[Rfam]
RNA sequence: AUGGAUACCCUUACAAAAACACUGACAUUAGUUCUCAAUACAGUAAGUGCUUUUUUGUUGGGAGUAGUUUUU
Numbered sequence: 001a002u003g004g005a006u007a008c009c010c011u012u013a014c015a016a017a018a019a020c021a022c023u024g025a026c027a028u029u030a031g032u033u034c035u036c037a038a039u040a041c042a043g044u045a046a047g048u049g050c051u052u053u054u055u056u057g058u059u060g061g062g063a064g065u066a067g068u069u070u071u072u
Stems, first nucleotide, its partner, number of pairs: 004068001006066003009062003013058002015055003018051001020049004025044002
miR-430 microRNA precursor family: a 72-nucleotide sequence from Gasterosteus aculeatus. Its Rfam clan is "mir-290 clan". The family has 32 seed sequences and 24,817 matches in Rfam 15.1. On this family, see Giraldez et al., Science 2005: "MicroRNAs regulate brain morphogenesis in zebrafish". The organism belongs to Gasterosteus, within Eukaryota.